RNA sequence: UUUGCGCUAGGGAUUGCAGUGGAAAUCCUUUUUUGUACUUUUUCGGGACAAAAAAGAUUGCAACGAAAAGCCCGCUCGAGC
Number, nucleotide and partner (000 for none) at each position: 001u000002u000003u000004g000005c000006g000007c000008u000009a000010g073011g072012g071013a000014u069015u068016g000017c000018a000019g064020u063021g000022g000023a000024a059025a058026u057027c056028c000029u000030u054031u053032u052033u051034u050035g049036u048037a000038c000039u000040u000041u000042u000043u000044c000045g000046g000047g000048a036049c035050a034051a033052a032053a031054a030055a000056g027057a026058u025059u024060g000061c000062a000063a020064c019065g000066a000067a000068a015069a014070g000071c012072c011073c010074g000075c000076u000077c000078g000079a000080g000081c000
RNA: Flavo-1 RNA
Organism: Oceanihabitans sp. IOP_32